[Rfam]
RNA sequence: ACUACAUCUUCAGCAGAGUCUGAAAUGUAGU
Dot-bracket structure: (((((((.((((((...).))))))))))))